The record is a 62-nucleotide sequence from Calothrix sp. NIES-4101, which matches "Nitrogen stress-induced RNA 1" in Rfam.
A reference for the family is Ionescu et al. (2010), "Heterocyst-specific transcription of NsiR1, a non-coding RNA encoded in a tandem array of direct repeats in cyanobacteria", J Mol Biol.
The organism belongs to Calothrix, within Bacteria.
It scores 45 bits against the family's covariance model.

[Rfam]
RNA sequence: UGGUAGAUGCACCCUAAUAAUUCACUCCCCUAAAUGGCAAUUGCUGUGCAGGGGAAUUUUUU
Numbered sequence: 001u002g003g004u005a006g007a008u009g010c011a012c013c014c015u016a017a018u019a020a021u022u023c024a025c026u027c028c029c030c031u032a033a034a035u036g037g038c039a040a041u042u043g044c045u046g047u048g049c050a051g052g053g054g055a056a057u058u059u060u061u062u
Base pairs, nucleotide, nucleotide: 002013003012004011027054028053029052030051031050034047035046036045037044